[Rfam]
Small nucleolar RNA SNORA23: a 171-nucleotide RNA sequence from Moschus moschiferus. About the family: The members of this family belong to the H/ACA class of snoRNAs which are thought to guide the sites of modification of uridines to pseudouridines. NCBI's taxonomy places the organism under Eukaryota, Opisthokonta, Bilateria, Artiodactyla, Moschus. On this family, see Huttenhofer et al., EMBO J 2001: "RNomics: an experimental approach that identifies 201 candidates for novel, small, non-messenger RNAs in mouse". Rfam links the family to the GO terms nucleolus and RNA processing. Pairs were carried over by alignment from the consensus structure, which was predicted with RNAalifold. The family's RNA type in Rfam is H/ACA-box small nucleolar RNA.

RNA sequence: CUCAUAAUGUGUGCAUAGUUUUCAUCUGUGUCUGAUAGCAGCAUCUGUCUGUGUUUUGCAUUCAGAUCUUGUUAUCCACACAAACAUCAUGCAGCCAAAGAGUAAGUUGGGAUCAUAGUACUGGUCUUGUGUUGUCUCUACUACUGCCAGCCUCCAAAUUCCCACACAAGA
Numbered sequence: 001c002u003c004a005u006a007a008u009g010u011g012u013g014c015a016u017a018g019u020u021u022u023c024a025u026c027u028g029u030g031u032c033u034g035a036u037a038g039c040a041g042c043a044u045c046u047g048u049c050u051g052u053g054u055u056u057u058g059c060a061u062u063c064a065g066a067u068c069u070u071g072u073u074a075u076c077c078a079c080a081c082a083a084a085c086a087u088c089a090u091g092c093a094g095c096c097a098a099a100g101a102g103u104a105a106g107u108u109g110g111g112a113u114c115a116u117a118g119u120a121c122u123g124g125u126c127u128u129g130u131g132u133u134g135u136c137u138c139u140a141c142u143a144c145u146g147c148c149a150g151c152c153u154c155c156a157a158a159u160u161c162c163c164a165c166a167c168a169a170g171a
Base pairs, nucleotide, nucleotide: 013092014091015090016089029082030081031080033078034077036074037073038072039071040070041069043067044066045065046064047063050060051059052058108164109163110162111161112160121150122149123148124147126146129144130143131142